The family of this 85-nucleotide RNA sequence from Chrysochromulina tobinii is "Small nucleolar RNA Z122".
The family's RNA type in Rfam is C/D-box small nucleolar RNA.
Lineage of the source: Eukaryota > Haptophyta > Prymnesiales > Chrysochromulinaceae > Chrysochromulina.
The base pairs follow the family's consensus structure, which was predicted with PFOLD.
Rfam links the family to the GO terms RNA processing and nucleolus.

RNA sequence: CCCGAGGAUGAUGACCACCUUUUCGUUGAAGAACCGACCAUUGCUGCGGAAACACUUAUAUUUGCACGUCAGUCUGACUCUCGGG
Numbered sequence: 001c002c003c004g005a006g007g008a009u010g011a012u013g014a015c016c017a018c019c020u021u022u023u024c025g026u027u028g029a030a031g032a033a034c035c036g037a038c039c040a041u042u043g044c045u046g047c048g049g050a051a052a053c054a055c056u057u058a059u060a061u062u063u064g065c066a067c068g069u070c071a072g073u074c075u076g077a078c079u080c081u082c083g084g085g
Stems, first nucleotide, its partner, number of pairs: 001085006